Rfam assigns this 53-nucleotide sequence to the family "ffh sRNA". The family's RNA type in Rfam is small RNA. The sequence is in the family's curated seed alignment. A reference for the family is Meyer et al. (2009), "Identification of candidate structured RNAs in the marine organism 'Candidatus Pelagibacter ubique'", BMC Genomics.
RNA sequence: GCGCCCAAGGGUGCACGCCGGUCAGCGAGGUUUCGCCCACCGGCGUCUUUGUC
Numbered sequence: 001g002c003g004c005c006c007a008a009g010g011g012u013g014c015a016c017g018c019c020g021g022u023c024a025g026c027g028a029g030g031u032u033u034c035g036c037c038c039a040c041c042g043g044c045g046u047c048u049u050u051g052u053c
Stems, first nucleotide, its partner, number of pairs: 016045007025036004